[Rfam]
Small nucleolar RNA SNORA38: a 131-nucleotide sequence from Capra hircus. From the family's description: ACA38 is a member of the H/ACA class of snoRNA that guide the sites of modification of uridines to pseudouridines. A search with the family's covariance model found it, with a score of 111 bits.
RNA sequence: UCCUCCUACAAAGGCAGGUCUAUGGUUUCCUGUCUUUUGGACAGAUAAGAACUGGAGGCAAGGAAAUGUGGAUUUGGAGAAGUCGGUGCUAGCUUCCUUGCUGCAGGCUCACGAUCAACCAUCCCAUGUAG
Numbered sequence: 001u002c003c004u005c006c007u008a009c010a011a012a013g014g015c016a017g018g019u020c021u022a023u024g025g026u027u028u029c030c031u032g033u034c035u036u037u038u039g040g041a042c043a044g045a046u047a048a049g050a051a052c053u054g055g056a057g058g059c060a061a062g063g064a065a066a067u068g069u070g071g072a073u074u075u076g077g078a079g080a081a082g083u084c085g086g087u088g089c090u091a092g093c094u095u096c097c098u099u100g101c102u103g104c105a106g107g108c109u110c111a112c113g114a115u116c117a118a119c120c121a122u123c124c125c126a127u128g129u130a131g
Base pairs, nucleotide, nucleotide: 002058003057004056005055006054018042019041020040021039024030025029070124071123072122074121091109092108093107094106095105097103